RNA sequence: GAGCAUGUUUCCAAGGGUUGUGGCUGAUGGUAGCCAUGGGCAUUCCAACUGCAUUUGAGAGCAACCUGGAGAGACUUUGACAGCUUAAGUCAGCAUAAUACCUACAGCUACUACUCACCUUUCCUGUGUGU
Numbered sequence: 001g002a003g004c005a006u007g008u009u010u011c012c013a014a015g016g017g018u019u020g021u022g023g024c025u026g027a028u029g030g031u032a033g034c035c036a037u038g039g040g041c042a043u044u045c046c047a048a049c050u051g052c053a054u055u056u057g058a059g060a061g062c063a064a065c066c067u068g069g070a071g072a073g074a075c076u077u078u079g080a081c082a083g084c085u086u087a088a089g090u091c092a093g094c095a096u097a098a099u100a101c102c103u104a105c106a107g108c109u110a111c112u113a114c115u116c117a118c119c120u121u122u123c124c125u126g127u128g129u130g131u
Stems, first nucleotide, its partner, number of pairs: 011039002016035006068124006083111001086104002089101001
The family of this 131-nucleotide RNA from Molossus molossus is "Small nucleolar RNA SNORA44". The organism belongs to Molossus, within Eukaryota. On this family, see Huttenhofer et al., EMBO J 2001: "RNomics: an experimental approach that identifies 201 candidates for novel, small, non-messenger RNAs in mouse". The family is grouped with related families in Rfam's "SNORA44 clan".